[Rfam]
RNA: c-di-GMP-I riboswitch aptamer
RNA sequence: ACCUGUCAUUGGCAAACCCGGAGCGAUCCGGCGACGCAAAGCUAUAGGGACUCCACGUGCUGGAGUUAGCCAGUUGCCUGC
Numbered sequence: 001a002c003c004u005g006u007c008a009u010u011g012g013c014a015a016a017c018c019c020g021g022a023g024c025g026a027u028c029c030g031g032c033g034a035c036g037c038a039a040a041g042c043u044a045u046a047g048g049g050a051c052u053c054c055a056c057g058u059g060c061u062g063g064a065g066u067u068a069g070c071c072a073g074u075u076g077c078c079u080g081c
Base pairs, nucleotide, nucleotide: 012037013036018031019030020029021028022027040075041074042073043072047071048070049067050066051065052064053063054062055061